[Rfam]
RNA: glmS glucosamine-6-phosphate activated ribozyme aptamer
Organism: Acetobacterium woodii
RNA sequence: AACAUCAAAGAAGCGCCAGAACUCAAGUGAUUGUCCACACUGAGAUUGAGUUGACGAGGACAGGGAGUAUCGAAAAUUCGGCGGAUGCCCUGAAGAAUUGCGGCAAAAAACUGAAAAGUGAUUUUCAGGACAAAGGCGGCAUAAAGUUAUAG
Numbered sequence: 001a002a003c004a005u006c007a008a009a010g011a012a013g014c015g016c017c018a019g020a021a022c023u024c025a026a027g028u029g030a031u032u033g034u035c036c037a038c039a040c041u042g043a044g045a046u047u048g049a050g051u052u053g054a055c056g057a058g059g060a061c062a063g064g065g066a067g068u069a070u071c072g073a074a075a076a077u078u079c080g081g082c083g084g085a086u087g088c089c090c091u092g093a094a095g096a097a098u099u100g101c102g103g104c105a106a107a108a109a110a111c112u113g114a115a116a117a118g119u120g121a122u123u124u125u126c127a128g129g130a131c132a133a134a135g136g137c138g139g140c141a142u143a144a145a146g147u148u149a150u151a152g
Stems, first nucleotide, its partner, number of pairs: 020052007061092005070081004099141003103137002111128007